[Rfam]
RNA sequence: GAGAUAUGAUGAGGUUUAAUUGGUCCGUGUUUCUGAUUCAACAGUGACAGACAAAAUUUUUUACCAAACUCUGAUCUC
Numbered sequence: 001g002a003g004a005u006a007u008g009a010u011g012a013g014g015u016u017u018a019a020u021u022g023g024u025c026c027g028u029g030u031u032u033c034u035g036a037u038u039c040a041a042c043a044g045u046g047a048c049a050g051a052c053a054a055a056a057u058u059u060u061u062u063a064c065c066a067a068a069c070u071c072u073g074a075u076c077u078c
Stems, first nucleotide, its partner, number of pairs: 001078004
A member of the RNA family "Small nucleolar RNA SNORD18" from Gossypium anomalum, 78 nucleotides long. Rfam classes the family as a C/D-box small nucleolar RNA. Rfam 15.1 lists 2,622 matches to the family in 960 species. It scores 44 bits against the family's covariance model. The organism belongs to Gossypium, within Eukaryota. Pairs were carried over by alignment from the consensus structure, which was predicted with PFOLD. On this family, see Prislei et al., Nucleic Acids Res 1993: "Two different snoRNAs are encoded in introns of amphibian and human L1 ribosomal protein genes".